[Rfam]
Small nucleolar RNA SNORD35: a 91-nucleotide RNA from Pogona vitticeps. The source organism's lineage runs through Eukaryota, Opisthokonta, Eumetazoa, Agamidae and Pogona. The family is grouped with related families in Rfam's "SNORD35 clan". Its family is annotated with RNA processing and nucleolus in the Gene Ontology. From the family's description: U35 is a C/D box snoRNA located in intron 6 of ribosomal protein L13A and intron 3 of ribosomal protein S11 in humans and at homologous positions in mouse and chicken ribosomal protein genes. U35 guides the methylation of 2'-O-ribose sites in 28S rRNA. A search with the family's covariance model found it, with a score of 54 bits.
RNA sequence: GGCAAAUGAUGUUUAUCUCACGAUGGUCUGCUGAUCUCCUUAGCAAAAGAGUUAUGAUUAAGCUGCUAUAAGCCUUAACUGAUGCCCUUUG
Numbered sequence: 001g002g003c004a005a006a007u008g009a010u011g012u013u014u015a016u017c018u019c020a021c022g023a024u025g026g027u028c029u030g031c032u033g034a035u036c037u038c039c040u041u042a043g044c045a046a047a048a049g050a051g052u053u054a055u056g057a058u059u060a061a062g063c064u065g066c067u068a069u070a071a072g073c074c075u076u077a078a079c080u081g082a083u084g085c086c087c088u089u090u091g
Stems, first nucleotide, its partner, number of pairs: 001086004